Rfam assigns this 119-nucleotide RNA sequence from Dokdonella koreensis to the family "SAM riboswitch aptamer (S box leader)".
It scores 76 bits against the family's covariance model.
Lineage of the source: Bacteria > Pseudomonadati > Lysobacterales > Rhodanobacteraceae > Dokdonella koreensis.
The base pairs follow the family's consensus structure, which is taken from published work.
[Rfam]
RNA sequence: CACUCAUCGCGACCGGUCGAGACACUGGGUCUGAGACGCCGGGGCAACCGCGACCUAUGUCGCAUGGUGCCAAUUCCAGCGGGGAUGUCCGGCAUGGGCCGGGCCCCGGGAGAUGAGCG
Numbered sequence: 001c002a003c004u005c006a007u008c009g010c011g012a013c014c015g016g017u018c019g020a021g022a023c024a025c026u027g028g029g030u031c032u033g034a035g036a037c038g039c040c041g042g043g044g045c046a047a048c049c050g051c052g053a054c055c056u057a058u059g060u061c062g063c064a065u066g067g068u069g070c071c072a073a074u075u076c077c078a079g080c081g082g083g084g085a086u087g088u089c090c091g092g093c094a095u096g097g098g099c100c101g102g103g104c105c106c107c108g109g110g111a112g113a114u115g116a117g118c119g
Stems, first nucleotide, its partner, number of pairs: 001119001003117006013042005021031003025079004043071004048067002050063004075111001080108005